[Rfam]
RNA sequence: CUUCCACUUUAACAUGGGUGUGCUUUCUGUGAGUUUUAAAUAACAGAGUAAGUGCUUCCAUGUUUUAGUAGAAG
Numbered sequence: 001c002u003u004c005c006a007c008u009u010u011a012a013c014a015u016g017g018g019u020g021u022g023c024u025u026u027c028u029g030u031g032a033g034u035u036u037u038a039a040a041u042a043a044c045a046g047a048g049u050a051a052g053u054g055c056u057u058c059c060a061u062g063u064u065u066u067a068g069u070a071g072a073a074g
Stems, first nucleotide, its partner, number of pairs: 001074003006069003011064008020055006027048002
Annotation
The family of this 74-nucleotide sequence from Dipodomys ordii is "mir-302 microRNA precursor family". For this family Rfam cites "Human embryonic stem cells express a unique set of microRNAs" (Suh et al., Dev Biol, 2004). Taxonomically the source falls in Dipodomys (Eukaryota, Opisthokonta, Metazoa, Eutheria).